[Rfam]
RNA sequence: CCCGGUCCUCGGUAGUGGCUUGCAGGCGACACACGUCGGCUGCGGGUCUCGAUCGAAGACCGGC
Numbered sequence: 001c002c003c004g005g006u007c008c009u010c011g012g013u014a015g016u017g018g019c020u021u022g023c024a025g026g027c028g029a030c031a032c033a034c035g036u037c038g039g040c041u042g043c044g045g046g047u048c049u050c051g052a053u054c055g056a057a058g059a060c061c062g063g064c
Stems, first nucleotide, its partner, number of pairs: 002063006009056005017048009027038003
RNA: Actino-pnp RNA
Organism: Nocardioides jishulii